The family of this 135-nucleotide RNA sequence from Sporomusa termitida is "c-di-AMP riboswitch aptamer (ydaO/yuaA leader)". Lineage of the source: Bacteria > Bacillati > Negativicutes > Sporomusaceae > Sporomusa. Rfam's curators write: This family represents a conserved RNA structure found upstream of the ydaO and yuaA genes in Bacillus subtilis and related genes in other bacteria.
RNA sequence: UAACGGCAAUCGCCGAGUUUCAUUUAAUGGAAGCGGGGGAACCAUUUUUGGGGUGAAUCCUGGGUAAGCCAGGUAGGGCGAAUUUCUUUCUGCCCGAAUCCGUCAGCUAACCUCGUAGGCGUUGAAAGAGAAGGA
Numbered sequence: 001u002a003a004c005g006g007c008a009a010u011c012g013c014c015g016a017g018u019u020u021c022a023u024u025u026a027a028u029g030g031a032a033g034c035g036g037g038g039g040a041a042c043c044a045u046u047u048u049u050g051g052g053g054u055g056a057a058u059c060c061u062g063g064g065u066a067a068g069c070c071a072g073g074u075a076g077g078g079c080g081a082a083u084u085u086c087u088u089u090c091u092g093c094c095c096g097a098a099u100c101c102g103u104c105a106g107c108u109a110a111c112c113u114c115g116u117a118g119g120c121g122u123u124g125a126a127a128g129a130g131a132a133g134g135a
Stems, first nucleotide, its partner, number of pairs: 011121004018032003033116006043050002051101003059073004076095004